[Rfam]
RNA: SAM riboswitch aptamer (S box leader)
RNA sequence: UGCUCAUCCAGAGGAGCUGAGGGAACGGCCCUGUGAAGCUCCGGCAACCACCCGGGUGACUUCGCGACGCGAGGCCCGUCCGGACGUAGGUGCCAACUCCGGCCUGUCGAAAGCCGACGGGGAAGAUGAGGA
Numbered sequence: 001u002g003c004u005c006a007u008c009c010a011g012a013g014g015a016g017c018u019g020a021g022g023g024a025a026c027g028g029c030c031c032u033g034u035g036a037a038g039c040u041c042c043g044g045c046a047a048c049c050a051c052c053c054g055g056g057u058g059a060c061u062u063c064g065c066g067a068c069g070c071g072a073g074g075c076c077c078g079u080c081c082g083g084a085c086g087u088a089g090g091u092g093c094c095a096a097c098u099c100c101g102g103c104c105u106g107u108c109g110a111a112a113g114c115c116g117a118c119g120g121g122g123a124a125g126a127u128g129a130g131g132a
Base pairs, nucleotide, nucleotide: 001132003130004129005128006127007126008125013042014041015040016039017038021031022030023029026101027100028099043094044093045092046091048090049089050087098124103121104120105119106118107117108116